[Rfam]
RNA sequence: UAAAAGUGUCGUCAAUAACCAGACAGGCAGGGGGCUAUAUCCUGUCCUGGAUGGUCAUUCGAUGACCUGAUCUGUAUGAGCAAGUAAGGCAUUUGCCUGGAUUGCGAAUACGGGCAGCGAUGUCGAGAGUGCAUAGCACGGAGACAUCGACUUUUA
Numbered sequence: 001u002a003a004a005a006g007u008g009u010c011g012u013c014a015a016u017a018a019c020c021a022g023a024c025a026g027g028c029a030g031g032g033g034g035c036u037a038u039a040u041c042c043u044g045u046c047c048u049g050g051a052u053g054g055u056c057a058u059u060c061g062a063u064g065a066c067c068u069g070a071u072c073u074g075u076a077u078g079a080g081c082a083a084g085u086a087a088g089g090c091a092u093u094u095g096c097c098u099g100g101a102u103u104g105c106g107a108a109u110a111c112g113g114g115c116a117g118c119g120a121u122g123u124c125g126a127g128a129g130u131g132c133a134u135a136g137c138a139c140g141g142a143g144a145c146a147u148c149g150a151c152u153u154u155u156a
Base pairs, nucleotide, nucleotide: 001156002155003154004153005152006151007150008066009065010064011063014059015058016057018055019054020053021052024049025048026047027046030042031041032040034038071114072113073112074111075110076109077108080105081104082103083102087098088097089096090095118149119148120147121146122145123144124143129139130138131137132136